[Rfam]
RNA sequence: GCAGUCAGCCCUUGGCGCUGGGACCCUAUCUAUAUUGCGUCUGCUUUGAAUGUCUGCUUUAAGUAGUGCAAUAUCGCUUAUAGGGUUUUGGCCUUGGGUUCGG
Numbered sequence: 001g002c003a004g005u006c007a008g009c010c011c012u013u014g015g016c017g018c019u020g021g022g023a024c025c026c027u028a029u030c031u032a033u034a035u036u037g038c039g040u041c042u043g044c045u046u047u048g049a050a051u052g053u054c055u056g057c058u059u060u061a062a063g064u065a066g067u068g069c070a071a072u073a074u075c076g077c078u079u080a081u082a083g084g085g086u087u088u089u090g091g092c093c094u095u096g097g098g099u100u101c102g103g
Stems, first nucleotide, its partner, number of pairs: 020089010030076001032074007041066005